The record is a 94-nucleotide sequence from Brassica carinata, which matches "Small nucleolar RNA snoR17" in Rfam. On this family, see Brown et al., RNA 2001: "Multiple snoRNA gene clusters from Arabidopsis". Pairs were carried over by alignment from the consensus structure, which was predicted with CMfinder. By type it is a C/D-box small nucleolar RNA.
RNA sequence: UAUAGUGAUGAAUAUAAUCACAAUUGUCACUACCUCUGAGGCAAUAUUUCGAACGUUUUGAUUUUCAUACUUGUGUUUAUUAAUAAGCCUUGUG
Numbered sequence: 001u002a003u004a005g006u007g008a009u010g011a012a013u014a015u016a017a018u019c020a021c022a023a024u025u026g027u028c029a030c031u032a033c034c035u036c037u038g039a040g041g042c043a044a045u046a047u048u049u050c051g052a053a054c055g056u057u058u059u060g061a062u063u064u065u066c067a068u069a070c071u072u073g074u075g076u077u078u079a080u081u082a083a084u085a086a087g088c089c090u091u092g093u094g
Stems, first nucleotide, its partner, number of pairs: 004031006078094002